This 122-nucleotide RNA sequence from Cupriavidus agavae belongs to the Rfam family "Burkholderia RNA 11".
Lineage of the source: Bacteria > Pseudomonadati > Pseudomonadota > Burkholderiaceae > Cupriavidus.
Rfam describes the family as follows. Co-purified with Hfq, expression confirmed by Northern blot. Predicted target marZ. Overlaps coding sequence.
The base pairs follow the family's consensus structure, which was predicted with RNAfold.
The match comes from Rfam's covariance-model search (73 bits).
RNA sequence: GCAACCUGAAGCUGGCGCGCGAGCGCCGCGUGGUGUUCCUGAGCCUGCUUGGCAUUUCGUGGCUCUGGUUCCUUGGCGCCACGUUCCUGACCUCGUUCUUCAGCUACGCCAAGGACGUGCUC
Numbered sequence: 001g002c003a004a005c006c007u008g009a010a011g012c013u014g015g016c017g018c019g020c021g022a023g024c025g026c027c028g029c030g031u032g033g034u035g036u037u038c039c040u041g042a043g044c045c046u047g048c049u050u051g052g053c054a055u056u057u058c059g060u061g062g063c064u065c066u067g068g069u070u071c072c073u074u075g076g077c078g079c080c081a082c083g084u085u086c087c088u089g090a091c092c093u094c095g096u097u098c099u100u101c102a103g104c105u106a107c108g109c110c111a112a113g114g115a116c117g118u119g120c121u122c
Stems, first nucleotide, its partner, number of pairs: 010049003014045002018041002021038006051121005057115002060112001062110001065103001067099002071095001075091001077089002
Dot-bracket structure: .........(((.((..((.((((((......)))))).))..)).))).(((((.((.(.(..(.((..(...(.((.........)).)...)..))...)......).).)).))))).